The family of this 209-nucleotide RNA from Dendrobium catenatum is "Plant small nucleolar RNA U3". The family's RNA type in Rfam is C/D-box small nucleolar RNA. A search with the family's covariance model found it, with a score of 150 bits. For this family Rfam cites "The uRNA database" (Zwieb, Nucleic Acids Res, 1997). The organism belongs to Dendrobium, within Eukaryota. About the family: Small nucleolar RNAs (snoRNAs) are involved in the processing and modification of rRNA in the nucleolus. There are two main classes of snoRNAs: the box C/D class, and the box H/ACA class. The family is grouped with related families in Rfam's "U3 clan".

[Rfam]
RNA sequence: ACGACCUUACUUGAACAGGAUCUGUUCUAUAGGAUCGUACUGCUACAUUUACAAUAGUAAAUUAGGCAAGCAAUAAAGUCUGGUUGAUGACACGUGGCUUCUGGGCUAGAGCGUGAUUGACGGUGGAGAUCUAUCGUUGAUCAAAGCUGUAGAGGAUCGUUCCGGCUGGUCUCGACCGACCGGGUGGCCUUGAAGCUGUCUGACGGACC
Numbered sequence: 001a002c003g004a005c006c007u008u009a010c011u012u013g014a015a016c017a018g019g020a021u022c023u024g025u026u027c028u029a030u031a032g033g034a035u036c037g038u039a040c041u042g043c044u045a046c047a048u049u050u051a052c053a054a055u056a057g058u059a060a061a062u063u064a065g066g067c068a069a070g071c072a073a074u075a076a077a078g079u080c081u082g083g084u085u086g087a088u089g090a091c092a093c094g095u096g097g098c099u100u101c102u103g104g105g106c107u108a109g110a111g112c113g114u115g116a117u118u119g120a121c122g123g124u125g126g127a128g129a130u131c132u133a134u135c136g137u138u139g140a141u142c143a144a145a146g147c148u149g150u151a152g153a154g155g156a157u158c159g160u161u162c163c164g165g166c167u168g169g170u171c172u173c174g175a176c177c178g179a180c181c182g183g184g185u186g187g188c189c190u191u192g193a194a195g196c197u198g199u200c201u202g203a204c205g206g207a208c209c
Base pairs, nucleotide, nucleotide: 001038002037003035005033006032007031013027014026015025016024017023018022044068046066048061049060050059051058052057078208079207080206081205082204097196098195099194100193101192103190104189105188106187107186108185110161111160112159113158120150121149122148123147124146128142129141130140131139133137162183163182164181165180167178168177169176170175